[Rfam]
RNA: RNase E 5' UTR element
RNA sequence: UUUUACCCGCCUAUCUUCCUGAAACAGUGGAAAGGGCAAAAUAGGCAAAUUUGCCUGAUAACGCAUAAACGCAGCAAUGGCGUAAGACGUAAUGCGUAAUCAAGCAGUUAGCGGGCUGCGGAUGGCAGCUUGACCGGUAAAUGGAAUCAGAUCUGGUGACCCUUUUUCAGAAGCUGUUCCCUCAAUAAAUGUGCUGUUUUCCAUCAGGAAAUACAGGCUACCGAAAUAUGCGCCUCUAUGCAAGCGACAACCGGGAGGUUGACGUCCCUGCGAUAAGCCACGAGGCCAUCGGUGAACCCGGUCAUUCAGCAUCUUUGUCCGUAGCUCUAUCAAUGA
Numbered sequence: 001u002u003u004u005a006c007c008c009g010c011c012u013a014u015c016u017u018c019c020u021g022a023a024a025c026a027g028u029g030g031a032a033a034g035g036g037c038a039a040a041a042u043a044g045g046c047a048a049a050u051u052u053g054c055c056u057g058a059u060a061a062c063g064c065a066u067a068a069a070c071g072c073a074g075c076a077a078u079g080g081c082g083u084a085a086g087a088c089g090u091a092a093u094g095c096g097u098a099a100u101c102a103a104g105c106a107g108u109u110a111g112c113g114g115g116c117u118g119c120g121g122a123u124g125g126c127a128g129c130u131u132g133a134c135c136g137g138u139a140a141a142u143g144g145a146a147u148c149a150g151a152u153c154u155g156g157u158g159a160c161c162c163u164u165u166u167u168c169a170g171a172a173g174c175u176g177u178u179c180c181c182u183c184a185a186u187a188a189a190u191g192u193g194c195u196g197u198u199u200u201c202c203a204u205c206a207g208g209a210a211a212u213a214c215a216g217g218c219u220a221c222c223g224a225a226a227u228a229u230g231c232g233c234c235u236c237u238a239u240g241c242a243a244g245c246g247a248c249a250a251c252c253g254g255g256a257g258g259u260u261g262a263c264g265u266c267c268c269u270g271c272g273a274u275a276a277g278c279c280a281c282g283a284g285g286c287c288a289u290c291g292g293u294g295a296a297c298c299c300g301g302u303c304a305u306u307c308a309g310c311a312u313c314u315u316u317g318u319c320c321g322u323a324g325c326u327c328u329a330u331c332a333a334u335g336a
Base pairs, nucleotide, nucleotide: 001041002040003039004038006036014031015030016029018027051107052106053105054104056102057101058100062096063095064094065093069090070089071088074081075080113327114326115325116324117323118322119321120320121319122318123317131304132303133302134301135300136299137298143180144179145178146177147176152171153170154169155168156167191218192217194216195215196214197213198211199210200209201208220293221292222291223290224289232286233285234284235283236282245264246263248261249260250259251258252257